[Rfam]
Shown here is a 408-nucleotide sequence from Corynebacterium vitaeruminis, a member of the family "Bacterial RNase P class A". The organism belongs to Corynebacterium vitaeruminis, within Bacteria.

RNA sequence: UGAGCCGCCUAGACGAUCGCGGCGGGGUGCAUCGACGCUUACGCGUGCCGGCACCCCGACGAGGAAAGUCCGGACUCCGAAGAGCACGGUGGUUGCUAACGGCAACCCGGGGCAACCCGCGGGACAGUGCAACAGAAAGUAGACCGCCAGGGAGACCUGGUAAGGGUGAAACGGUGCGGUAAGAGCGCACCAGCGCGCUGGGUGACCAGCGCGGCUAUGUAAACCCCAUCGGGAGCAAGGCAAGAAGCCCGCGCGGUGCGCGGGCACGCGGAUGAUUGAGGGCUGCUCGCCCGAGUCCGUGGGUAGCUGCUUGAGGCGGCCAGCGAUGGUUCGUCCAGAUGGAUGAUCGUCGCUUUCCCGGGUCCACCCGGGAAAGUACAGAAUCCGGCUUACAGGGUGGCUCAUUCG
Numbered sequence: 001u002g003a004g005c006c007g008c009c010u011a012g013a014c015g016a017u018c019g020c021g022g023c024g025g026g027g028u029g030c031a032u033c034g035a036c037g038c039u040u041a042c043g044c045g046u047g048c049c050g051g052c053a054c055c056c057c058g059a060c061g062a063g064g065a066a067a068g069u070c071c072g073g074a075c076u077c078c079g080a081a082g083a084g085c086a087c088g089g090u091g092g093u094u095g096c097u098a099a100c101g102g103c104a105a106c107c108c109g110g111g112g113c114a115a116c117c118c119g120c121g122g123g124a125c126a127g128u129g130c131a132a133c134a135g136a137a138a139g140u141a142g143a144c145c146g147c148c149a150g151g152g153a154g155a156c157c158u159g160g161u162a163a164g165g166g167u168g169a170a171a172c173g174g175u176g177c178g179g180u181a182a183g184a185g186c187g188c189a190c191c192a193g194c195g196c197g198c199u200g201g202g203u204g205a206c207c208a209g210c211g212c213g214g215c216u217a218u219g220u221a222a223a224c225c226c227c228a229u230c231g232g233g234a235g236c237a238a239g240g241c242a243a244g245a246a247g248c249c250c251g252c253g254c255g256g257u258g259c260g261c262g263g264g265c266a267c268g269c270g271g272a273u274g275a276u277u278g279a280g281g282g283c284u285g286c287u288c289g290c291c292c293g294a295g296u297c298c299g300u301g302g303g304u305a306g307c308u309g310c311u312u313g314a315g316g317c318g319g320c321c322a323g324c325g326a327u328g329g330u331u332c333g334u335c336c337a338g339a340u341g342g343a344u345g346a347u348c349g350u351c352g353c354u355u356u357c358c359c360g361g362g363u364c365c366a367c368c369c370g371g372g373a374a375a376g377u378a379c380a381g382a383a384u385c386c387g388g389c390u391u392a393c394a395g396g397g398u399g400g401c402u403c404a405u406u407c408g
Base pairs, nucleotide, nucleotide: 001404002403003402004401005400006399007398008397009396010395012351013350014349015348016347017346018345020061021060023058024057025056026055027054028053029052030051066391067390068389070388071387072386073385074384075235076234077233078232082288083287084286085285087231088230089229090228091227092106093105094104095103096102107121108119109118110117111116122226123225127224128223129220130219131218144165145164146161147160148159149158150157151156173191174190175189176188177187178186193215194213195212196211197210198209199208200207201206239308240307241306268300269299270298271297272296273295280292281291282290283289315335316334317333318332319331320329321328322327
Annotation: Rfam's curators write: Ribonuclease P (RNase P) is a ubiquitous endoribonuclease, found in archaea, bacteria and eukarya as well as chloroplasts and mitochondria. It is annotated as a ribozyme.